RNA sequence: UAAUUUGUUUAGAGCAGAUUCUCAUUAGUUAUUGCAAAUUUACAUGUGACUACUCAUAAUCAUUUACUACUAUGUGAACAAUAACUUUUUGAGAUUUUAAUUAGAGU
Numbered sequence: 001u002a003a004u005u006u007g008u009u010u011a012g013a014g015c016a017g018a019u020u021c022u023c024a025u026u027a028g029u030u031a032u033u034g035c036a037a038a039u040u041u042a043c044a045u046g047u048g049a050c051u052a053c054u055c056a057u058a059a060u061c062a063u064u065u066a067c068u069a070c071u072a073u074g075u076g077a078a079c080a081a082u083a084a085c086u087u088u089u090u091g092a093g094a095u096u097u098u099a100a101u102u103a104g105a106g107u
Base pairs, nucleotide, nucleotide: 004105005104006103007102008100009099012096015093018090025084026081028079029078030077
Dot-bracket structure: ...((((((..(..(..(......((.(((..............................................))).)..).....)..)..)..)).))))..
MIR480 microRNA precursor family: a 107-nucleotide RNA from Populus trichocarpa.
The family has 69 seed sequences and 3,070 matches in Rfam 15.1.
Its family is annotated with miRNA-mediated post-transcriptional gene silencing and RISC complex in the Gene Ontology.
The literature on the family includes a 2005 paper in Plant Cell by Lu et al., "Novel and mechanical stress-responsive MicroRNAs in Populus trichocarpa that are absent from Arabidopsis".